A member of the RNA family "Purine riboswitch aptamer" from Paenibacillus phyllosphaerae, 110 nucleotides long.
[Rfam]
RNA sequence: CAUCAUAAUCAUAUAACGGAUCGUAUAACCUCACAGCGGAAGAAUCCGCAAGGGUGAGGGUUUCUACGGGAAGCCUUAACUUCCUAACUACGACUAUGGAAUCGCCAAGA
Numbered sequence: 001c002a003u004c005a006u007a008a009u010c011a012u013a014u015a016a017c018g019g020a021u022c023g024u025a026u027a028a029c030c031u032c033a034c035a036g037c038g039g040a041a042g043a044a045u046c047c048g049c050a051a052g053g054g055u056g057a058g059g060g061u062u063u064c065u066a067c068g069g070g071a072a073g074c075c076u077u078a079a080c081u082u083c084c085u086a087a088c089u090a091c092g093a094c095u096a097u098g099g100a101a102u103c104g105c106c107a108a109g110a
Base pairs, nucleotide, nucleotide: 019095021093022092023091024090025089029059030058031057032056033055034054068085069084070083071082072081073080
Dot-bracket structure: ..................(.(((((...((((((...................))))))........((((((......))))))...))))).)...............
Gene Ontology term of the family: purine nucleobase biosynthetic process.